Record summary:
Shown here is a 109-nucleotide RNA from Pristionchus pacificus, a member of the family "SL2 RNA". Gene Ontology term of the family: mRNA trans splicing, via spliceosome. The match comes from Rfam's covariance-model search (47 bits). The organism belongs to Pristionchus, within Eukaryota. About the family: This family represents SL2 RNA. SL2 RNA is involved in trans splicing in lower eukaryotes. Trans-splicing is a form of RNA processing.
RNA sequence: GGUUUUAACCCAGUAUCUCAAGGUACGCUUAAGCUUCUGACCAGAUUUGCUCUGUGUUAGAGAACCAUCAGUUUUUGGGCAGCACUAUCGGGGGUUCUCCCGAGUGCAA
Numbered sequence: 001g002g003u004u005u006u007a008a009c010c011c012a013g014u015a016u017c018u019c020a021a022g023g024u025a026c027g028c029u030u031a032a033g034c035u036u037c038u039g040a041c042c043a044g045a046u047u048u049g050c051u052c053u054g055u056g057u058u059a060g061a062g063a064a065c066c067a068u069c070a071g072u073u074u075u076u077g078g079g080c081a082g083c084a085c086u087a088u089c090g091g092g093g094g095u096u097c098u099c100c101c102g103a104g105u106g107c108a109a
Stems, first nucleotide, its partner, number of pairs: 007036002013028002016025001018023001038059004042054004085106001088103004092098002